This 76-nucleotide sequence from Theropithecus gelada belongs to the Rfam family "Y RNA". About the family: Y RNAs are components of the Ro ribonucleoprotein particle (Ro RNP), in association with Ro60 and La proteins. It scores 38 bits against the family's covariance model. The family's consensus secondary structure is taken from published work. For this family Rfam cites "Conserved features of Y RNAs: a comparison of experimentally derived secondary structures" (Teunissen et al., Nucleic Acids Res, 2000).
RNA sequence: AGUUGGUCCGAGUGUCGUAGGCUAUUGUUAAGCUGAUUUAACAUUGUCUCCCCCCAUAACCACACCUGACUAUUAA
Dot-bracket structure: ...(((((.(...((.((.((....(((.((......)).))).........)).))....))...))))))....